[Rfam]
Shown here is a 52-nucleotide sequence from Lentivirus humimdef1, a member of the family "HIV Ribosomal frameshift signal". Gene Ontology term of the family: viral translational frameshifting. On this family, see Biswas et al., J Virol 2004: "The human immunodeficiency virus type 1 ribosomal frameshifting site is an invariant sequence determinant and an important target for antiviral therapy". By type it is a frameshift element. Rfam describes the family as follows. This family represents the HIV Ribosomal frameshift signal. HIV uses a system called -1 ribosomal frameshifting to produce the required ratio of Gag and Gag-Pol polyproteins. The stem-loop structure of the frameshift signal is thought to impede the ribosome and cause slippage in the 5' direction, this causes the -1 frameshift and translation then continues in the new frame.
RNA sequence: UUUUUUAAAGAAAAUUUGGCCUUCCCACAAAAGGAGGCCAAAGAAUUUCCUU
Number, nucleotide and partner (000 for none) at each position: 001u000002u000003u000004u000005u000006u000007a000008a052009a051010g050011a000012a048013a047014a046015u042016u041017u040018g039019g038020c037021c036022u035023u034024c033025c000026c000027a000028c000029a000030a000031a000032a000033g024034g023035a022036g021037g020038c019039c018040a017041a016042a015043g000044a000045a000046u014047u013048u012049c000050c010051u009052u008